[Rfam]
RNA: Y RNA
RNA sequence: AGCUGCUCCAAUGGUAGUGGGUUAUCAAAAUUUAUUAACAUUAGUGUCACUAAAGUUGAAAUCUAACCCCCCAUUGCUAAAUCUGACUGGCUUUAA
Numbered sequence: 001a002g003c004u005g006c007u008c009c010a011a012u013g014g015u016a017g018u019g020g021g022u023u024a025u026c027a028a029a030a031u032u033u034a035u036u037a038a039c040a041u042u043a044g045u046g047u048c049a050c051u052a053a054a055g056u057u058g059a060a061a062u063c064u065a066a067c068c069c070c071c072c073a074u075u076g077c078u079a080a081a082u083c084u085g086a087c088u089g090g091c092u093u094u095a096a
Stems, first nucleotide, its partner, number of pairs: 001092005007086002010084001015079001016075006033061001035059001037057002